[Rfam]
RNA sequence: UGGUGCCCAACGUGAUGCUUGAGCAUGGGGGAUCCACUGAAGGACACUGUUUGAGUGGCUGGCAGAAAGGGAAAAAAAGAGAGAAUGACAUGGGAAUCUGCUGCGUCUGCACCCCUCAGGUAAGUGAAUGGCGAUUAUGGGUCAAGCAUUGAGCCAAGAUAAGAUGUUUGUUGAAAGACUAAGAAAGGCUAUCAAGGCACAAGGAGUAAAGGUAAAAAUUAAGCAUUUGUGUCAGUAUUUUGAUUAUAUUAAAGAAGUUUGUCCUU
Numbered sequence: 001u002g003g004u005g006c007c008c009a010a011c012g013u014g015a016u017g018c019u020u021g022a023g024c025a026u027g028g029g030g031g032a033u034c035c036a037c038u039g040a041a042g043g044a045c046a047c048u049g050u051u052u053g054a055g056u057g058g059c060u061g062g063c064a065g066a067a068a069g070g071g072a073a074a075a076a077a078a079g080a081g082a083g084a085a086u087g088a089c090a091u092g093g094g095a096a097u098c099u100g101c102u103g104c105g106u107c108u109g110c111a112c113c114c115c116u117c118a119g120g121u122a123a124g125u126g127a128a129u130g131g132c133g134a135u136u137a138u139g140g141g142u143c144a145a146g147c148a149u150u151g152a153g154c155c156a157a158g159a160u161a162a163g164a165u166g167u168u169u170g171u172u173g174a175a176a177g178a179c180u181a182a183g184a185a186a187g188g189c190u191a192u193c194a195a196g197g198c199a200c201a202a203g204g205a206g207u208a209a210a211g212g213u214a215a216a217a218a219u220u221a222a223g224c225a226u227u228u229g230u231g232u233c234a235g236u237a238u239u240u241u242g243a244u245u246a247u248a249u250u251a252a253a254g255a256a257g258u259u260u261g262u263c264c265u266u
Base pairs, nucleotide, nucleotide: 006031007030008029012026013025014024036050037049039047079117080116081115086111089105091103092102093101125144126143127142129141132139133138151192153189154188155187200242201241202240203239204238206236207235210228211227212226213225251266252265254263255262
Mason-Pfizer monkey virus packaging signal: a 266-nucleotide sequence from Molossus molossus. Rfam classes the family as a cis-regulatory element. From the family's description: This family represents a group of sequences that are related to the Mason-Pfizer monkey virus (MPMV) packaging signal. The packaging signal is located in the 5' UTR and is required for specific RNA encapsidation. Rfam 15.1 lists 2,921 matches to the family in 53 species.